[Rfam]
RNA sequence: CCCCAGCCCGUGCUCUUUCCACUGAGCCACGCUGCUUCUCCCUAACAUAUAAUAAUAAUAUGAGAAGCAGCGUGGCUCAGUGGAAAGAGCACGGGCUUUGGA
Numbered sequence: 001c002c003c004c005a006g007c008c009c010g011u012g013c014u015c016u017u018u019c020c021a022c023u024g025a026g027c028c029a030c031g032c033u034g035c036u037u038c039u040c041c042c043u044a045a046c047a048u049a050u051a052a053u054a055a056u057a058a059u060a061u062g063a064g065a066a067g068c069a070g071c072g073u074g075g076c077u078c079a080g081u082g083g084a085a086a087g088a089g090c091a092c093g094g095g096c097u098u099u100g101g102a
Stems, first nucleotide, its partner, number of pairs: 002101002005097006012090008022080019